[Rfam]
RNA sequence: UUUUGAAUUUGAGGCCUUCCACUCAGUGUAUUUGACAAGCUGAGUUCGACACUCAAUUUAGCAGGGUGUCAGUUUGUCAAAUACCCCAAGUGAGAGGCUGUCUGAC
Numbered sequence: 001u002u003u004u005g006a007a008u009u010u011g012a013g014g015c016c017u018u019c020c021a022c023u024c025a026g027u028g029u030a031u032u033u034g035a036c037a038a039g040c041u042g043a044g045u046u047c048g049a050c051a052c053u054c055a056a057u058u059u060a061g062c063a064g065g066g067u068g069u070c071a072g073u074u075u076g077u078c079a080a081a082u083a084c085c086c087c088a089a090g091u092g093a094g095a096g097g098c099u100g101u102c103u104g105a106c
Stems, first nucleotide, its partner, number of pairs: 020092004026086001028084014048070004053065002
A member of the RNA family "mir-223 microRNA precursor family" from Atractosteus spatula, 106 nucleotides long. A search with the family's covariance model found it, with a score of 94 bits. The literature on the family includes a 2003 paper in Science by Lim et al., "Vertebrate microRNA genes".